[Rfam]
Description:
Shown here is a 212-nucleotide RNA sequence from Xenorhabdus szentirmaii, a member of the family "rncO". Rfam links the family to the GO term regulation of mRNA stability. The source organism's lineage runs through Bacteria, Pseudomonadota, Gammaproteobacteria, Morganellaceae and Xenorhabdus szentirmaii. Pairs were carried over by alignment from the consensus structure, which is taken from published work. By type it is a cis-regulatory element. Rfam describes the family as follows. This family represents a bacterial regulatory element (rncO) found in the rnc leader sequence.
RNA sequence: AAACGAGAUGACUGGCUUUCUGAGAUAGAAAUCUUAGGGAGCCAGUGCAAACGCAACAGUUUUGUAAGGCAUAUAUCUUUAUACCCAACCAGGAUAUAGCUUCACAGGUUUGUUGCGUGUGCUUUUAUUUGAUGAAUUCUAACUGAAUUGGUAGCACAUGAACGCCAUAAUAACGAACCGGUUACAACAUAAACUAGGCUAUACCUUUACAC
Numbered sequence: 001a002a003a004c005g006a007g008a009u010g011a012c013u014g015g016c017u018u019u020c021u022g023a024g025a026u027a028g029a030a031a032u033c034u035u036a037g038g039g040a041g042c043c044a045g046u047g048c049a050a051a052c053g054c055a056a057c058a059g060u061u062u063u064g065u066a067a068g069g070c071a072u073a074u075a076u077c078u079u080u081a082u083a084c085c086c087a088a089c090c091a092g093g094a095u096a097u098a099g100c101u102u103c104a105c106a107g108g109u110u111u112g113u114u115g116c117g118u119g120u121g122c123u124u125u126u127a128u129u130u131g132a133u134g135a136a137u138u139c140u141a142a143c144u145g146a147a148u149u150g151g152u153a154g155c156a157c158a159u160g161a162a163c164g165c166c167a168u169a170a171u172a173a174c175g176a177a178c179c180g181g182u183u184a185c186a187a188c189a190u191a192a193a194c195u196a197g198g199c200u201a202u203a204c205c206u207u208u209a210c211a212c
Stems, first nucleotide, its partner, number of pairs: 013044005018038002045124001047122003051118009062108002065104001067102004078092002178197001180195004